Small nucleolar RNA SNORD25: an 86-nucleotide RNA from Protea cynaroides.
The source organism's lineage runs through Eukaryota, Spermatophyta, Magnoliopsida, Proteaceae and Protea.
A reference for the family is Qu et al. (2001), "Identification of 10 novel snoRNA gene clusters from Arabidopsis thaliana", Nucleic Acids Res.
The family's consensus secondary structure was predicted with PFOLD.
Clan: SNORD25 clan.
Rfam links the family to the GO terms RNA processing and nucleolus.
Rfam 15.1 lists 985 matches to the family in 241 species.
By type it is a C/D-box small nucleolar RNA.
[Rfam]
RNA sequence: AACAACGAUGAUGAGUAUACAGCAGACCUGUAAUGAUGUGCGAAAAUGAUCGCAACUUUAAUGAACAUCUAAGGGACUGAGUUGUU
Numbered sequence: 001a002a003c004a005a006c007g008a009u010g011a012u013g014a015g016u017a018u019a020c021a022g023c024a025g026a027c028c029u030g031u032a033a034u035g036a037u038g039u040g041c042g043a044a045a046a047u048g049a050u051c052g053c054a055a056c057u058u059u060a061a062u063g064a065a066c067a068u069c070u071a072a073g074g075g076a077c078u079g080a081g082u083u084g085u086u
Stems, first nucleotide, its partner, number of pairs: 002085005